The record is a 232-nucleotide part of an RNA from Sphingobacterium allocomposti, which matches "Bacterial large subunit ribosomal RNA" in Rfam. For this family Rfam cites "Crystal structure of the ribosome at 5.5 A resolution" (Yusupov et al., Science, 2001). The match comes from Rfam's covariance-model search (2709 bits). The family's consensus secondary structure is taken from published work.
RNA sequence: GAGUUACUCUUAUCUGGCAAGGUUAAGUCCUUCAGGGACGCAGCCGAAGCGAAAGCGAGUCUGAACAGGGCGCAAAGUCAGGUGAGGUAGACGCGAAACCUUGUGAUCUACCCUUGGGCAGGUUGAAGUUGCAGUAACAUGUAAUGGAGGACCGAACCGAUAAACGUUGAAAAGUUUCCGGAUGACCUGAGGGUAGGGGUGAAAGGCCAAUCAAACUGGGAAAUAGCUCGUA
Numbered sequence: 001g002a003g004u005u006a007c008u009c010u011u012a013u014c015u016g017g018c019a020a021g022g023u024u025a026a027g028u029c030c031u032u033c034a035g036g037g038a039c040g041c042a043g044c045c046g047a048a049g050c051g052a053a054a055g056c057g058a059g060u061c062u063g064a065a066c067a068g069g070g071c072g073c074a075a076a077g078u079c080a081g082g083u084g085a086g087g088u089a090g091a092c093g094c095g096a097a098a099c100c101u102u103g104u105g106a107u108c109u110a111c112c113c114u115u116g117g118g119c120a121g122g123u124u125g126a127a128g129u130u131g132c133a134g135u136a137a138c139a140u141g142u143a144a145u146g147g148a149g150g151a152c153c154g155a156a157c158c159g160a161u162a163a164a165c166g167u168u169g170a171a172a173a174g175u176u177u178c179c180g181g182a183u184g185a186c187c188u189g190a191g192g193g194u195a196g197g198g199g200u201g202a203a204a205g206g207c208c209a210a211u212c213a214a215a216c217u218g219g220g221a222a223a224u225a226g227c228u229c230g231u232a
Stems, first nucleotide, its partner, number of pairs: 005089003009086010021045004027039003049056002059071004092230002095227001099220003103216002108196011119184001121153004128145006157181003162177004198208003